[Rfam]
RNA sequence: GAUGCGAUGAUGAUUCAUAUAGGUUUUUGGCAGUGGUGGCGUCUAUCACCGUGAGCCUCCAAACCAAAAACGACUUCUCUUUCCACUGAGCAUU
Number, nucleotide and partner (000 for none) at each position: 001g094002a093003u092004g091005c090006g000007a000008u000009g000010a000011u000012g000013a000014u000015u000016c000017a000018u000019a000020u000021a000022g000023g000024u000025u000026u000027u000028u000029g000030g000031c000032a000033g000034u000035g000036g000037u000038g000039g000040c000041g000042u000043c000044u000045a000046u000047c000048a000049c000050c000051g000052u000053g000054a000055g000056c000057c000058u000059c000060c000061a000062a000063a000064c000065c000066a000067a000068a000069a000070a000071c000072g000073a000074c000075u000076u000077c000078u000079c000080u000081u000082u000083c000084c000085a000086c000087u000088g000089a000090g005091c004092a003093u002094u001